[Rfam]
RNA: Archaeal large subunit ribosomal RNA, nucleotides 676 to 941
RNA sequence: GAGUUUACUUUUACGGCGAGCUUAAGGGUUUAAAGCCCGAAGGCAUAGGGAAACCGAUUUUUUGUAGUUAUUUUAUAGUAAUGAGAAAAAGGGUCUGAAAGGGCCUUUAGUCGUAAGGGUCAGACUAGAAUCCGGACGAUCGUGUCCUGAGCAGGGUGAAGCCAUGCGAAAGCGUGGUGGAGGCCCGAAGGGGUGCUGACGUGCAAAUCGCUCCUCUGACUUAGGACAAGGGGCCAAAAGCCAAUCUAGUCCGGUGAUAGCUAGUU
Numbered sequence: 001g002a003g004u005u006u007a008c009u010u011u012u013a014c015g016g017c018g019a020g021c022u023u024a025a026g027g028g029u030u031u032a033a034a035g036c037c038c039g040a041a042g043g044c045a046u047a048g049g050g051a052a053a054c055c056g057a058u059u060u061u062u063u064g065u066a067g068u069u070a071u072u073u074u075a076u077a078g079u080a081a082u083g084a085g086a087a088a089a090a091g092g093g094u095c096u097g098a099a100a101g102g103g104c105c106u107u108u109a110g111u112c113g114u115a116a117g118g119g120u121c122a123g124a125c126u127a128g129a130a131u132c133c134g135g136a137c138g139a140u141c142g143u144g145u146c147c148u149g150a151g152c153a154g155g156g157u158g159a160a161g162c163c164a165u166g167c168g169a170a171a172g173c174g175u176g177g178u179g180g181a182g183g184c185c186c187g188a189a190g191g192g193g194u195g196c197u198g199a200c201g202u203g204c205a206a207a208u209c210g211c212u213c214c215u216c217u218g219a220c221u222u223a224g225g226a227c228a229a230g231g232g233g234c235c236a237a238a239a240g241c242c243a244a245u246c247u248a249g250u251c252c253g254g255u256g257a258u259a260g261c262u263a264g265u266u
Base pairs, nucleotide, nucleotide: 005122007120008119009118010117011116012115013114014113015112016111017110020044021043022042023041026038027037028036029035048055049054060089061088062087063086067082068081069080070079071078072077092105093104094103095102125264126263128261132254133253134252135251136250137249141230143228144227145226146225147224148223149222150221151220152218154186155185156184157183161178162177163176164175165174166173167172190215191214192213193212195211196210198209199208232242233241234240